Rfam assigns this 83-nucleotide sequence from Alligator mississippiensis to the family "mir-181 microRNA precursor family".
The family's consensus secondary structure was predicted with PFOLD.
The organism belongs to Alligator, within Eukaryota.
The literature on the family includes a 2001 paper in Cell by Ambros, "microRNAs: tiny regulators with great potential".
Nucleotides: 083
Stems, first nucleotide, its partner, number of pairs: 001083003004079002007076002014069009025060007033053004
Number, partner (000 for none) and nucleotide at each position: 001083a002082g003081g004079u005078u006000u007076c008075a009000g010000c011000g012000a013000a014069c015068a016067u017066u018065c019064a020063a021062c022061g023000c024000u025060g026059u027058c028057g029056g030055u031054g032000a033053g034052u035051u036050u037000u038000g039000g040000c041000a042000g043000u044000c045000a046000g047000g048000u049000u050036a051035a052034a053033c054031c055030a056029u057028c058027g059026a060025c061022c062021g063020u064019u065018g066017a067016g068015u069014g070000u071000a072000c073000c074000c075008u076007g077000c078005a079004a080000c081003c082002u083001u